RNA sequence: AUUCCUAUUUGACUGCCACUUUUCUCCUAAUAGAUUCUAGUGGCUAUGCUUAUGAGAUAGAUUAGCAUUGCCAUCUGAAGGGGGAGGGUUUGUUUGUGUCCUCCUUCUGUAUGAAAUGACUAAAUAGAAGAAA
Number, nucleotide and partner (000 for none) at each position: 001a000002u000003u000004c056005c000006u054007a053008u000009u000010u000011g000012a000013c000014u000015g000016c043017c042018a041019c040020u000021u000022u000023u000024c000025u000026c000027c000028u000029a000030a000031u000032a000033g000034a000035u000036u000037c000038u000039a000040g019041u018042g017043g016044c000045u000046a000047u000048g000049c000050u000051u000052a000053u007054g006055a000056g004057a000058u000059a000060g000061a000062u000063u000064a000065g000066c000067a000068u000069u000070g120071c000072c118073a117074u000075c000076u000077g000078a000079a000080g000081g000082g000083g000084g000085a108086g107087g106088g105089u000090u000091u000092g000093u000094u000095u000096g000097u000098g000099u000100c000101c000102u000103c000104c000105u088106u087107c086108u085109g000110u000111a000112u000113g000114a000115a000116a000117u073118g072119a000120c070121u000122a000123a000124a000125u000126a000127g000128a000129a000130g000131a000132a000133a000
RNA: Small nucleolar RNA SNORA29
Organism: Pipistrellus kuhlii